[Rfam]
RNA sequence: UAUAAGCUACGGUGUUCGUAUUUAACUAAGUUUUAACCUCUAAUGAAAGAAUAGGGAGUUUUACAUCGGAACUCUAAUGUCGAGCCGCCAAAGAGUGGAAGACAGGAAGGUUUCUGCAAACACCCACUUGGUGAAGUGGUGGUUUAAAACUUUUUAUUGAGAGUACGGCAUUUGUGGCUAUGA
Numbered sequence: 001u002a003u004a005a006g007c008u009a010c011g012g013u014g015u016u017c018g019u020a021u022u023u024a025a026c027u028a029a030g031u032u033u034u035a036a037c038c039u040c041u042a043a044u045g046a047a048a049g050a051a052u053a054g055g056g057a058g059u060u061u062u063a064c065a066u067c068g069g070a071a072c073u074c075u076a077a078u079g080u081c082g083a084g085c086c087g088c089c090a091a092a093g094a095g096u097g098g099a100a101g102a103c104a105g106g107a108a109g110g111u112u113u114c115u116g117c118a119a120a121c122a123c124c125c126a127c128u129u130g131g132u133g134a135a136g137u138g139g140u141g142g143u144u145u146a147a148a149a150c151u152u153u154u155u156a157u158u159g160a161g162a163g164u165a166c167g168g169c170a171u172u173u174g175u176g177g178c179u180a181u182g183a
Stems, first nucleotide, its partner, number of pairs: 002181002005179007012171004017167003029151004034146003037142002054125003058121004065115001068114006079103002085098004